Record summary: The family of this 121-nucleotide RNA sequence from Antarcticibacterium flavum is "Bacteroidete tryptophan peptide leader RNA". The family's RNA type in Rfam is cis-regulatory leader.
Nucleotides: 121
Stems, first nucleotide, its partner, number of pairs: 036102001038100001040097004046090002049087004056082002059079003062073003
Number, partner (000 for none) and nucleotide at each position: 001000a002000c003000c004000u005000g006000u007000u008000u009000a010000u011000a012000u013000u014000u015000g016000g017000c018000c019000u020000a021000a022000u023000g024000a025000a026000a027000a028000u029000u030000c031000a032000g033000a034000a035000u036102g037000u038100a039000c040097a041096u042095a043094c044000c045000u046090g047089g048000u049087g050086g051085u052084g053000g054000a055000a056082u057081a058000a059079u060078u061077u062073a063072c064071g065000u066000c067000a068000a069000c070000a071064c072063g073062u074000c075000g076000u077061g078060a079059a080000g081057u082056a083000a084052c085051a086050c087049u088000g089047c090046u091000a092000u093000a094043g095042u096041a097040u098000g099000a100038u101000c102036u103000c104000a105000u106000a107000u108000a109000c110000a111000a112000a113000a114000g115000g116000c117000u118000u119000g120000u121000c

NCBI's taxonomy places the organism under Bacteria, Bacteroidota, Flavobacteriales, Flavobacteriaceae, Antarcticibacterium.